About this RNA:
The record is a 113-nucleotide RNA sequence from Gottfriedia endophytica, which matches "BsrF" in Rfam. Rfam classes the family as a small RNA.
RNA sequence: GCGAUGAGCUAAUUUGUGUAAGUCGAGGGAUAAGCGGAAAGGCUAAACGCGCGAAUGUGGUCGCCCGGUCUCUCGCCUCAAAACGCAUCAAGACGUCUACUGCGGUAGGCGUC
Dot-bracket structure: .............(((.(.....((((((((..((......))....((.(((........))).)))))))))).).)))..........(((((((((....)))))))))
A reference for the family is Saito et al. (2008), "Novel small RNA-encoding genes in the intergenic regions of Bacillus subtilis", Gene. The base pairs follow the family's consensus structure, which was predicted with WAR.